This 87-nucleotide RNA sequence from Sporosarcina luteola belongs to the Rfam family "BsrC". Rfam 15.1 lists 572 matches to the family in 553 species. Pairs were carried over by alignment from the consensus structure, which was predicted with CMfinder. Rfam's curators write: The 301 nucleotide sequence from Kouji Nakamura has been trimmed to a highly conserved ~85 nucleotide long core to form this family.
RNA sequence: UAUCCUUAAGCAACGCAAGCCCUACCUACUCUCGCGUCCUUGCGACCCUUUAGCCGCGCCAGUGUGAAUAAGUGUCCUCAAAAACAG
Numbered sequence: 001u002a003u004c005c006u007u008a009a010g011c012a013a014c015g016c017a018a019g020c021c022c023u024a025c026c027u028a029c030u031c032u033c034g035c036g037u038c039c040u041u042g043c044g045a046c047c048c049u050u051u052a053g054c055c056g057c058g059c060c061a062g063u064g065u066g067a068a069u070a071a072g073u074g075u076c077c078u079c080a081a082a083a084a085c086a087g
Stems, first nucleotide, its partner, number of pairs: 035066002039062002041058004046053001